Record summary
Shown here is an 84-nucleotide RNA sequence from Jaculus jaculus, a member of the family "mir-489 microRNA precursor family". The base pairs follow the family's consensus structure, which was predicted with RNAalifold. Taxonomically the source falls in Jaculus (Eukaryota, Mammalia, Glires, Rodentia). A search with the family's covariance model found it, with a score of 89 bits.

RNA sequence: AUGGCAGCUUGGUGGUCGUAUGUGCAAUGUCAUUUACUUGAACCUUUUAGAGUGACAUCACAUAUACGACAGCUAAACUGCCAU
Numbered sequence: 001a002u003g004g005c006a007g008c009u010u011g012g013u014g015g016u017c018g019u020a021u022g023u024g025c026a027a028u029g030u031c032a033u034u035u036a037c038u039u040g041a042a043c044c045u046u047u048u049a050g051a052g053u054g055a056c057a058u059c060a061c062a063u064a065u066a067c068g069a070c071a072g073c074u075a076a077a078c079u080g081c082c083a084u
Base pairs, nucleotide, nucleotide: 002083003082004081005080006079007078015070016069017068018067019066020065021064022063024061027058029056031054032053033052037050038049